[Rfam]
RNA sequence: AAAAAACUAAAUAAGUAGCCAGAGACAGCAGGUGCUUUCAUGCUUAAUAUCCUGCCGAGGUUUACGUCUUAUUAAUUACGGUGUGCUUACACUUGAGAACAGUGUGAAAGCAACUGGUGCGAGAUGUAUUUCGAUGUUAUUUUAUAUCGACCUCGAUCUAAAACCCUGGCUUGUUGUAGCUGGGGUUUAUUGUUUUUAGU
Dot-bracket structure: ...........................(((((.((......)).......)))))............................................................................................................((((((((......))))))))...............
Ribosomal protein L10 leader: a 200-nucleotide sequence from Calothrix sp. C42_A2020_038. The literature on the family includes a 1994 paper in Prog Nucleic Acid Res Mol Biol by Zengel and Lindahl, "Diverse mechanisms for regulating ribosomal protein synthesis in Escherichia coli".